[Rfam]
RNA sequence: CCGCGGUGAUGACUCUCUUAGGACACCUUUGGAUGUAACCGUGAAAAGAAAGCGAAAUUCCUGAGCGGC
Numbered sequence: 001c002c003g004c005g006g007u008g009a010u011g012a013c014u015c016u017c018u019u020a021g022g023a024c025a026c027c028u029u030u031g032g033a034u035g036u037a038a039c040c041g042u043g044a045a046a047a048g049a050a051a052g053c054g055a056a057a058u059u060c061c062u063g064a065g066c067g068g069c
Stems, first nucleotide, its partner, number of pairs: 001068004

This 69-nucleotide RNA from Onychorhynchus coronatus belongs to the Rfam family "Small nucleolar RNA SNORD58".
The family is grouped with related families in Rfam's "SNORD58 clan".
Rfam links the family to the GO terms RNA processing and nucleolus.
The base pairs follow the family's consensus structure, which was predicted with PFOLD.
The organism belongs to Onychorhynchus, within Eukaryota.
A search with the family's covariance model found it, with a score of 69 bits.
It is annotated as a C/D-box small nucleolar RNA.
Rfam 15.1 lists 2,484 matches to the family in 680 species.
snoRNA U58 is found in introns 1, 3 and 6 of the ribosomal protein RPL17 gene in humans.